[Rfam]
RNA sequence: CUUACAGAGUUUUUUGGCAUUCUGUCCACCUCCUACUCAACUCACUUGUUAAAUAAACCUUGUUUCAAUAUGGAGGUGGGCAUACUGCCAACUUAGCUGUGUUAG
Numbered sequence: 001c002u003u004a005c006a007g008a009g010u011u012u013u014u015u016g017g018c019a020u021u022c023u024g025u026c027c028a029c030c031u032c033c034u035a036c037u038c039a040a041c042u043c044a045c046u047u048g049u050u051a052a053a054u055a056a057a058c059c060u061u062g063u064u065u066c067a068a069u070a071u072g073g074a075g076g077u078g079g080g081c082a083u084a085c086u087g088c089c090a091a092c093u094u095a096g097c098u099g100u101g102u103u104a105g
Base pairs, nucleotide, nucleotide: 011095014091015090016089017088018087019086023082024081025080026079027078028077029076030075031074032073033072
Rfam assigns this 105-nucleotide RNA from Coptis chinensis to the family "MIR394 microRNA precursor family".
The base pairs follow the family's consensus structure, which was predicted with WAR.
A reference for the family is Jones-Rhoades and Bartel (2004), "Computational identification of plant microRNAs and their targets, including a stress-induced miRNA", Mol Cell.
Rfam links the family to the GO terms miRNA-mediated post-transcriptional gene silencing and RISC complex.